[Rfam]
RNA sequence: GCUUUAUCAGUGGCAGUGUCCGCUAUAAAGA
Dot-bracket structure: .((((((.((((((...).))))))))))).
RNA: Iron response element II